Rfam assigns this 97-nucleotide RNA sequence from Castanea mollissima to the family "Small nucleolar RNA snoR31/Z110/Z27".
RNA sequence: AUUGUGAAGAUGAUGAAGCCAGAAAAUCUUAGGACACCUUCUGAGACAGCACGCACGCGUGCUGUGUAUGAGAAAGAUUUUCGUUUCUGAUUAUUAU
Numbered sequence: 001a002u003u004g005u006g007a008a009g010a011u012g013a014u015g016a017a018g019c020c021a022g023a024a025a026a027u028c029u030u031a032g033g034a035c036a037c038c039u040u041c042u043g044a045g046a047c048a049g050c051a052c053g054c055a056c057g058c059g060u061g062c063u064g065u066g067u068a069u070g071a072g073a074a075a076g077a078u079u080u081u082c083g084u085u086u087c088u089g090a091u092u093a094u095u096a097u
Stems, first nucleotide, its partner, number of pairs: 001097002004094004042048002

Source information:
Gene Ontology terms of the family: RNA processing and nucleolus. On this family, see Barneche et al., J Mol Biol 2001: "Identification of 66 box C/D snoRNAs in Arabidopsis thaliana: extensive gene duplications generated multiple isoforms predicting new ribosomal RNA 2'-O-methylation sites". Rfam classes the family as a C/D-box small nucleolar RNA. The family's consensus secondary structure was predicted with PFOLD. Lineage of the source: Eukaryota > Viridiplantae > Euphyllophyta > Magnoliopsida > Castanea. This family contains several related snoRNAs including R31, Z27 and Z110.